RNA: Small nucleolar RNA snoR99
RNA sequence: GUGCUUUAGGGAUGAACAGGUCCCUCACAUUAAUCCAUCUGAUUCACUUUGUCAGCUGUCUCUUUAGUUGUCUUGCUGAUCAUUUUAGGGCAGUACAUGC
Numbered sequence: 001g002u003g004c005u006u007u008a009g010g011g012a013u014g015a016a017c018a019g020g021u022c023c024c025u026c027a028c029a030u031u032a033a034u035c036c037a038u039c040u041g042a043u044u045c046a047c048u049u050u051g052u053c054a055g056c057u058g059u060c061u062c063u064u065u066a067g068u069u070g071u072c073u074u075g076c077u078g079a080u081c082a083u084u085u086u087a088g089g090g091c092a093g094u095a096c097a098u099g100c
Base pairs, nucleotide, nucleotide: 035093038090039089051080052079053078054077055076056075058073